[Rfam]
RNA sequence: UUUUAUGGAUAAUGAUAGCCAUAAAAAUACUUGGAAUAAUUUUACAAAGUUAGUUCUUUGGG
Numbered sequence: 001u002u003u004u005a006u007g008g009a010u011a012a013u014g015a016u017a018g019c020c021a022u023a024a025a026a027a028u029a030c031u032u033g034g035a036a037u038a039a040u041u042u043u044a045c046a047a048a049g050u051u052a053g054u055u056c057u058u059u060g061g062g
Base pairs, nucleotide, nucleotide: 001026002025003024004023005022006021007020008019030062031061032060033059034057036054037053039051
Shown here is a 62-nucleotide sequence from Pelagibacterales bacterium SAG-MED18, a member of the family "pntA sRNA". Rfam classes the family as a small RNA. The family's consensus secondary structure is taken from published work. A search with the family's covariance model found it, with a score of 67 bits.